[Rfam]
RNA: tRNA
RNA sequence: GGAGAGUUAUCGAAGUGGUCAUAACGAGCUGCACUCGAAAUGCAGUUGUCCAUUACUGGGCACGUGGGUUCGAAUCCCACACUCUCCG
Number, nucleotide and partner (000 for none) at each position: 001g087002g086003a085004g084005a083006g082007u081008u000009a000010u027011c026012g025013a000014a000015g000016u000017g000018g000019u000020c000021a000022u000023a000024a000025c012026g011027a010028g000029c045030u044031g043032c042033a041034c000035u000036c000037g000038a000039a000040a000041u033042g032043c031044a030045g029046u000047u000048g000049u000050c000051c000052a000053u000054u000055a000056c000057u000058g000059g000060g000061c000062a000063c000064g080065u079066g078067g077068g076069u000070u000071c000072g000073a000074a000075u000076c068077c067078c066079a065080c064081a007082c006083u005084c004085u003086c002087c001088g000